[Rfam]
Nucleotides: 074
Base pairs, nucleotide, nucleotide: 003072004071005070008067009066010065011064012063013062014061015060016059017058022053023052025051026050027049028048029047030046
Number, partner (000 for none) and nucleotide at each position: 001000u002000c003072a004071c005070u006000u007000u008067a009066g010065c011064u012063g013062g014061u015060u016059g017058a018000c019000u020000u021000c022053g023052g024000g025051u026050c027049a028048a029047a030046u031000u032000g033000u034000a035000a036000u037000u038000u039000a040000a041000a042000u043000a044000u045000c046030a047029u048028u049027u050026g051025g052023u053022c054000c055000c056000c057000u058017u059016c060015a061014a062013c063012c064011a065010g066009c067008u068000g069000u070005a071004g072003u073000u074000g